RNA sequence: CCCUCCUGCAAAGGCCUGUCUGUGGUUCCCUGUCUUUGGACAUAAGAACUGGAGGCAAAGAAAUGUGGACGUGGAGAAGUCUGCAGCAGCUUGCUCCCUGCAGCUCACAAUCAACCAUCCCACAUCG
Numbered sequence: 001c002c003c004u005c006c007u008g009c010a011a012a013g014g015c016c017u018g019u020c021u022g023u024g025g026u027u028c029c030c031u032g033u034c035u036u037u038g039g040a041c042a043u044a045a046g047a048a049c050u051g052g053a054g055g056c057a058a059a060g061a062a063a064u065g066u067g068g069a070c071g072u073g074g075a076g077a078a079g080u081c082u083g084c085a086g087c088a089g090c091u092u093g094c095u096c097c098c099u100g101c102a103g104c105u106c107a108c109a110a111u112c113a114a115c116c117a118u119c120c121c122a123c124a125u126c127g
Stems, first nucleotide, its partner, number of pairs: 002055005017042005024030002067120003088105003092102003
RNA: Small nucleolar RNA SNORA38
Organism: Cnephaeus nilssonii